[Rfam]
RNA sequence: AGGACGAAACGGCUAAGCCAUUGAAAGAUGGCGGCGCAAAACUAAAGGGGCUAAGGUCACAGGACUAAGUCAGCCAGUUAUCGAA
Numbered sequence: 001a002g003g004a005c006g007a008a009a010c011g012g013c014u015a016a017g018c019c020a021u022u023g024a025a026a027g028a029u030g031g032c033g034g035c036g037c038a039a040a041a042c043u044a045a046a047g048g049g050g051c052u053a054a055g056g057u058c059a060c061a062g063g064a065c066u067a068a069g070u071c072a073g074c075c076a077g078u079u080a081u082c083g084a085a
Stems, first nucleotide, its partner, number of pairs: 012037002017032006040079004047075002049071003056065003
The record is an 85-nucleotide RNA sequence from Falsibacillus pallidus, which matches "c-di-GMP-I riboswitch aptamer" in Rfam. The match comes from Rfam's covariance-model search (64 bits).